[Rfam]
RNA: Small nucleolar RNA R32/R81/Z41
Organism: Cephalotus follicularis
RNA sequence: AUUUGAAUAUGAUGAAAGUUAUGAAAUGGGUGAUGAUUAUUAUUCAUCUGAUCAAAAAUCUGUUCGCUACGUUCUUUCUGAUUCAUAC
Numbered sequence: 001a002u003u004u005g006a007a008u009a010u011g012a013u014g015a016a017a018g019u020u021a022u023g024a025a026a027u028g029g030g031u032g033a034u035g036a037u038u039a040u041u042a043u044u045c046a047u048c049u050g051a052u053c054a055a056a057a058a059u060c061u062g063u064u065c066g067c068u069a070c071g072u073u074c075u076u077u078c079u080g081a082u083u084c085a086u087a088c
Base pairs, nucleotide, nucleotide: 004085005084006083007082
Dot-bracket structure: ...((((..........................................................................))))...